Background: Rfam assigns this 128-nucleotide RNA sequence from Formicarius rufipectus to the family "Small nucleolar RNA SNORA17". The literature on the family includes a 1997 paper in J Mol Biol by Ofengand and Bakin, "Mapping to nucleotide resolution of pseudouridine residues in large subunit ribosomal RNAs from representative eukaryotes, prokaryotes, archaebacteria, mitochondria and chloroplasts". snoRNA ACA 17 belongs to the H/ACA family of snoRNAs and is predicted to guide pseudouridylation of the 28S rRNA at positions U4659 and U4598. It shares the same host gene together with ACA43. The match comes from Rfam's covariance-model search (62 bits).
[Rfam]
RNA sequence: CCUGCCCCAGCGCAUGUUGCAGAUGUGGCUGCAGUGCCACGUUUGUGUCAUUCGGUGGCAGAGAGGAUAAGGCAAGGUCUUCCCCUGGGGCUCUGACCCACGUGGGCUCCCAGGAUUGCUCAACAACC
Numbered sequence: 001c002c003u004g005c006c007c008c009a010g011c012g013c014a015u016g017u018u019g020c021a022g023a024u025g026u027g028g029c030u031g032c033a034g035u036g037c038c039a040c041g042u043u044u045g046u047g048u049c050a051u052u053c054g055g056u057g058g059c060a061g062a063g064a065g066g067a068u069a070a071g072g073c074a075a076g077g078u079c080u081u082c083c084c085c086u087g088g089g090g091c092u093c094u095g096a097c098c099c100a101c102g103u104g105g106g107c108u109c110c111c112a113g114g115a116u117u118g119c120u121c122a123a124c125a126a127c128c
Stems, first nucleotide, its partner, number of pairs: 002061005007055002010052001014048002019046004024041006068125001071121001075120002081115003087111002089108005